[Rfam]
RNA sequence: GCGAGACAACCUGGCCGAACCGUGAGGACCUGCGGAUAAACUGACGGCGGACCGCGCCCGGGUGCCGGUCCGCCCGAACACAGUCAGCAGCCGCUGCAACCCCAGGGAG
Numbered sequence: 001g002c003g004a005g006a007c008a009a010c011c012u013g014g015c016c017g018a019a020c021c022g023u024g025a026g027g028a029c030c031u032g033c034g035g036a037u038a039a040a041c042u043g044a045c046g047g048c049g050g051a052c053c054g055c056g057c058c059c060g061g062g063u064g065c066c067g068g069u070c071c072g073c074c075c076g077a078a079c080a081c082a083g084u085c086a087g088c089a090g091c092c093g094c095u096g097c098a099a100c101c102c103c104a105g106g107g108a109g
Base pairs, nucleotide, nucleotide: 049071050070051069052068053067054066057064085096086095087094088093
Source information:
Rfam assigns this 109-nucleotide RNA sequence from Streptomyces carminius to the family "Streptomyces-metK RNA". The organism belongs to Streptomyces, within Bacteria. It is annotated as a small RNA.